[Rfam]
RNA sequence: UUUGGGUAGCUACUACAUCAAUUAAGACGAAAAGCGGGGGAACCAGGCUCUUUUAGAGCAUCGGGGCGUAUCUUCAGCGUGAUUUUCUGAAGAGGGACAUCUCUCAGUCCUAGUCCGUCAGCUAACUCCGUCAGCAUUUGAGAGAGGACUG
Numbered sequence: 001u002u003u004g005g006g007u008a009g010c011u012a013c014u015a016c017a018u019c020a021a022u023u024a025a026g027a028c029g030a031a032a033a034g035c036g037g038g039g040g041a042a043c044c045a046g047g048c049u050c051u052u053u054u055a056g057a058g059c060a061u062c063g064g065g066g067c068g069u070a071u072c073u074u075c076a077g078c079g080u081g082a083u084u085u086u087c088u089g090a091a092g093a094g095g096g097a098c099a100u101c102u103c104u105c106a107g108u109c110c111u112a113g114u115c116c117g118u119c120a121g122c123u124a125a126c127u128c129c130g131u132c133a134g135c136a137u138u139u140g141a142g143a144g145a146g147g148a149c150u151g
Stems, first nucleotide, its partner, number of pairs: 001033003034131006044063001064116003072092006095110004
A member of the RNA family "c-di-AMP riboswitch aptamer (ydaO/yuaA leader)" from Leptolyngbyaceae cyanobacterium M33_DOE_097, 151 nucleotides long. Rfam's curators write: This family represents a conserved RNA structure found upstream of the ydaO and yuaA genes in Bacillus subtilis and related genes in other bacteria. The source organism's lineage runs through Bacteria, Bacillati, Cyanobacteriota, Leptolyngbyales and Leptolyngbyaceae.